[Rfam]
RNA sequence: UGCCAUAAGGGAUAGUAUUACCCUUAUGGCUACACAGGUAGCAGUAGCA
Number, nucleotide and partner (000 for none) at each position: 001u000002g030003c029004c028005a027006u026007a025008a024009g023010g022011g021012a000013u000014a000015g000016u000017a000018u000019u000020a000021c011022c010023c009024u008025u007026a006027u005028g004029g003030c002031u000032a000033c000034a000035c000036a000037g000038g000039u000040a000041g000042c000043a000044g000045u000046a000047g000048c000049a000
This 49-nucleotide RNA sequence belongs to the Rfam family "ssNA-helicase RNA". The family's consensus secondary structure is taken from published work. By type it is a small RNA.